A member of the RNA family "mir-145 microRNA precursor family" from Austrofundulus limnaeus, 88 nucleotides long. It scores 75 bits against the family's covariance model. The organism belongs to Austrofundulus, within Eukaryota. The family has 26 seed sequences and 645 matches in Rfam 15.1.
RNA sequence: CCCUCUUUUCUGGGGUCCAGUUUUCCCAGGAAUCCCUUGACCUGAUAGAAAAGGGGAUUCCUGGAAAUACUGAUCUUGGGGGAGAGGU
Numbered sequence: 001c002c003c004u005c006u007u008u009u010c011u012g013g014g015g016u017c018c019a020g021u022u023u024u025c026c027c028a029g030g031a032a033u034c035c036c037u038u039g040a041c042c043u044g045a046u047a048g049a050a051a052a053g054g055g056g057a058u059u060c061c062u063g064g065a066a067a068u069a070c071u072g073a074u075c076u077u078g079g080g081g082g083a084g085a086g087g088u
Stems, first nucleotide, its partner, number of pairs: 018072004023067002026064012